Overview: Rfam assigns this 92-nucleotide sequence from Acanthaster planci to the family "Small nucleolar RNA SNORD70". It scores 57 bits against the family's covariance model.
[Rfam]
RNA sequence: GUAUGGGCUGUCAAUGAUGUAUAUGUAUUCAGUAACAGAUUAAAAUGUGAAGAUUGAAAAACAUUCGUCACUACCUCUGAGACGGCCCGUCU
Numbered sequence: 001g002u003a004u005g006g007g008c009u010g011u012c013a014a015u016g017a018u019g020u021a022u023a024u025g026u027a028u029u030c031a032g033u034a035a036c037a038g039a040u041u042a043a044a045a046u047g048u049g050a051a052g053a054u055u056g057a058a059a060a061a062c063a064u065u066c067g068u069c070a071c072u073a074c075c076u077c078u079g080a081g082a083c084g085g086c087c088c089g090u091c092u
Stems, first nucleotide, its partner, number of pairs: 001092001003090010
Rfam's curators write: snoRNA HBII-234 belongs to the C/D family of snoRNAs.